[Rfam]
RNA: c-di-GMP-I-GGC riboswitch aptamer
Nucleotides: 097
Base pairs, nucleotide, nucleotide: 003094004093011036012035016031017030018029019028020027021026034083040089041088042087044086045085046084047081048080049079
Number, partner (000 for none) and nucleotide at each position: 001000a002000c003094c004093g005000a006000u007000a008000a009000a010000g011036g012035c013000a014000a015000a016031c017030c018029c019028g020027u021026c022000g023000u024000g025000a026021g027020g028019c029018g030017g031016g032000g033000a034083c035012g036011c037000a038000a039000a040089g041088c042087c043000a044086u045085g046084g047081g048080u049079c050000u051000u052000g053000a054000g055000c056000g057000c058000g059000g060000c061000u062000g063000c064000c065000c066000g067000c068000c069000g070000c071000g072000c073000c074000u075000u076000c077000c078000a079049g080048a081047u082000c083034g084046c085045c086044a087042g088041g089040c090000c091000g092000c093004c094003g095000g096000a097000c